The record is a 107-nucleotide RNA sequence from Pseudomonas entomophila, which matches "TPP riboswitch aptamer (THI element)" in Rfam. Vitamin B(1) in its active form thiamin pyrophosphate (TPP) is an essential coenzyme that is synthesised by coupling of pyrimidine and thiazole moieties in bacteria. The previously detected thiamin-regulatory element, thi box was extended, resulting in a new, highly conserved RNA secondary structure, the THI element, which is widely distributed in eubacteria and also occurs in some archaea. Analysis of operon structures identified a large number of new candidate thiamin-regulated genes, mostly transporters, in various prokaryotic organisms. The THI element is a riboswitch that directly binds to TPP to regulate gene expression through a variety of mechanisms in archaea, bacteria and eukaryotes. through a variety of mechanisms in archaea, bacteria and eukaryotes. Tandem TPP riboswitches have been reported where both TPP riboswitches respond independently to TPP. The structure of TPP riboswitch has been reported for Escherichia coli and Arabidopsis thaliana. NCBI's taxonomy places the organism under Bacteria, Pseudomonadati, Pseudomonadota, Gammaproteobacteria, Pseudomonas entomophila.

RNA sequence: AUGUUCUUGUCGGGGUGCCUUGAAGCAAAGGCUGAGAUCGCAAAGUUGCGGAUCCCGUUGAACCUGAUCAGGUUAGCGCCUGCGUAGGGAACAAGAUUGCUCUCAUU
Number, nucleotide and partner (000 for none) at each position: 001a000002u000003g000004u000005u000006c095007u094008u093009g092010u091011c057012g056013g055014g054015g000016u051017g032018c031019c030020u029021u028022g000023a000024a000025g000026c000027a000028a021029a020030g019031g018032c017033u000034g000035a000036g000037a000038u000039c050040g049041c048042a047043a000044a000045g000046u000047u042048g041049c040050g039051g016052a000053u000054c014055c013056c012057g011058u000059u000060g000061a000062a000063c088064c087065u086066g085067a000068u000069c082070a081071g080072g079073u000074u000075a000076g000077c000078g000079c072080c071081u070082g069083c000084g000085u066086a065087g064088g063089g000090a000091a010092c009093a008094a007095g006096a000097u000098u000099g000100c000101u000102c000103u000104c000105a000106u000107u000